A member of the RNA family "Small nucleolar RNA snoR111" from Spirodela intermedia, 127 nucleotides long. Pairs were carried over by alignment from the consensus structure, which was predicted with WAR. Rfam links the family to the GO terms RNA processing and nucleolus. Taxonomically the source falls in Spirodela (Eukaryota, Streptophyta, Streptophytina, Magnoliopsida).
RNA sequence: GAAAUGCAGGGAGUUGCCCGAUCGUGGCGUCUCUCCUUCUGGACAGGACCAGAGGAAAAUCGACAAGUCGAGAUAUCGUUUCAGUCGCCACUUCCUUGUGGGCGAUUAGAUUGUUGCUCGACGACAU
Numbered sequence: 001g002a003a004a005u006g007c008a009g010g011g012a013g014u015u016g017c018c019c020g021a022u023c024g025u026g027g028c029g030u031c032u033c034u035c036c037u038u039c040u041g042g043a044c045a046g047g048a049c050c051a052g053a054g055g056a057a058a059a060u061c062g063a064c065a066a067g068u069c070g071a072g073a074u075a076u077c078g079u080u081u082c083a084g085u086c087g088c089c090a091c092u093u094c095c096u097u098g099u100g101g102g103c104g105a106u107u108a109g110a111u112u113g114u115u116g117c118u119c120g121a122c123g124a125c126a127u
Stems, first nucleotide, its partner, number of pairs: 006039001008037004013031001015029004067122001069120004075111003084106006093098001